The family of this 46-nucleotide RNA from Parabacteroides sp. AF48-14 is "Acido-Lenti-1 RNA". Lineage of the source: Bacteria > Pseudomonadati > Bacteroidales > Tannerellaceae > Parabacteroides. Pairs were carried over by alignment from the consensus structure, which is taken from published work.
RNA sequence: CCCAAGGCUCACGCCUUGGGCUGAGAUCUGCCGGGCUUACAGCUCA
Numbered sequence: 001c002c003c004a005a006g007g008c009u010c011a012c013g014c015c016u017u018g019g020g021c022u023g024a025g026a027u028c029u030g031c032c033g034g035g036c037u038u039a040c041a042g043c044u045c046a
Base pairs, nucleotide, nucleotide: 001020002019003018004017005016006015007014008013033045034044035043036042037041